[Rfam]
RNA sequence: UGAUGCUUGAAGGGAAAGACCCUUUAGUACGAGAGGAACAGGGGUCUGUAGCCGCUAGUUUACCAGUUGUCCGACAGGGCAAUGCUGGGCAGCCACGCUAUAAGGGAUAAAUGCUGAAAGCAUCUAAGCAUGAAGUCUACCCUAAGACGAGGCAUCAUAGGAUACGAGUAAAAGACUCGUUUGAUAGAGCUGGGGUGUAAGCAAGAAGGCAACGACUUGUUCAGCCCGCAGCCACUAAAAAUCCAUUCA
Numbered sequence: 001u002g003a004u005g006c007u008u009g010a011a012g013g014g015a016a017a018g019a020c021c022c023u024u025u026a027g028u029a030c031g032a033g034a035g036g037a038a039c040a041g042g043g044g045u046c047u048g049u050a051g052c053c054g055c056u057a058g059u060u061u062a063c064c065a066g067u068u069g070u071c072c073g074a075c076a077g078g079g080c081a082a083u084g085c086u087g088g089g090c091a092g093c094c095a096c097g098c099u100a101u102a103a104g105g106g107a108u109a110a111a112u113g114c115u116g117a118a119a120g121c122a123u124c125u126a127a128g129c130a131u132g133a134a135g136u137c138u139a140c141c142c143u144a145a146g147a148c149g150a151g152g153c154a155u156c157a158u159a160g161g162a163u164a165c166g167a168g169u170a171a172a173a174g175a176c177u178c179g180u181u182u183g184a185u186a187g188a189g190c191u192g193g194g195g196u197g198u199a200a201g202c203a204a205g206a207a208g209g210c211a212a213c214g215a216c217u218u219g220u221u222c223a224g225c226c227c228g229c230a231g232c233c234a235c236u237a238a239a240a241a242u243c244c245a246u247u248c249a
Stems, first nucleotide, its partner, number of pairs: 001157008011143004017047008048101005056095001058093001063088005068081005104138003111131005160244004164180005185237003189232004193227003201220005208213001